[Rfam]
RNA: MIR8565 microRNA precursor family
RNA sequence: UCCGUACCCAUGUAUGUAGGACCCCAAAGGAUCACCAUUAAAUUUGGUACAGAUCUUAACAAAAGUUAUCACAUGGGUGUGAGACUUGAUUUUUUUAUAGAUUUGUGCCCAAUUUAAUAGUGAUCAUUUGGGGUCCUACACACAUGGGUCUGGG
Number, nucleotide and partner (000 for none) at each position: 001u000002c153003c152004g151005u000006a149007c148008c147009c146010a145011u144012g143013u142014a000015u140016g139017u138018a137019g136020g135021a134022c133023c132024c131025c130026a129027a128028a127029g000030g125031a124032u123033c000034a121035c120036c000037a118038u117039u116040a115041a114042a113043u112044u111045u000046g109047g108048u107049a106050c105051a104052g103053a102054u101055c100056u099057u000058a000059a096060c000061a094062a093063a092064a091065g090066u089067u088068a087069u082070c081071a080072c079073a078074u000075g000076g000077g000078u073079g072080u071081g070082a069083g000084a000085c000086u000087u068088g067089a066090u065091u064092u063093u062094u061095u000096u059097a000098u000099a056100g055101a054102u053103u052104u051105g050106u049107g048108c047109c046110c000111a044112a043113u042114u041115u040116a039117a038118u037119a000120g035121u034122g000123a032124u031125c030126a000127u028128u027129u026130g025131g024132g023133g022134u021135c020136c019137u018138a017139c016140a015141c000142a013143c012144a011145u010146g009147g008148g007149u006150c000151u004152g003153g002154g000